Source information: This 145-nucleotide RNA from Mesocestoides corti belongs to the Rfam family "U12 minor spliceosomal RNA". It is annotated as a spliceosomal small nuclear RNA. NCBI's taxonomy places the organism under Eukaryota, Opisthokonta, Lophotrochozoa, Platyhelminthes, Mesocestoides.
[Rfam]
RNA sequence: ACGCCUUAAACUAAUGAGUAAGGAAAAUAACGCUCCGGUGGAAUAGCCGGUGUACUGGUUUUUCCAGACAAAUGUUUGUAGGGUAAAGGCCUUCUCGGCGUGUCUUCCUACUCUAGAGGACGCGUCUGAUGACAGCGGCCUACCC
Numbered sequence: 001a002c003g004c005c006u007u008a009a010a011c012u013a014a015u016g017a018g019u020a021a022g023g024a025a026a027a028u029a030a031c032g033c034u035c036c037g038g039u040g041g042a043a044u045a046g047c048c049g050g051u052g053u054a055c056u057g058g059u060u061u062u063u064c065c066a067g068a069c070a071a072a073u074g075u076u077u078g079u080a081g082g083g084u085a086a087a088g089g090c091c092u093u094c095u096c097g098g099c100g101u102g103u104c105u106u107c108c109u110a111c112u113c114u115a116g117a118g119g120a121c122g123c124g125u126c127u128g129a130u131g132a133c134a135g136c137g138g139c140c141u142a143c144c145c
Base pairs, nucleotide, nucleotide: 004023005022006021007020008019032053033052035050036049037048038047039046055067056066057065058064081145082144083143084142085141088140089139090138091137092134095129096128097126098125099124100123101122103120104119105118106117107116
The base pairs follow the family's consensus structure.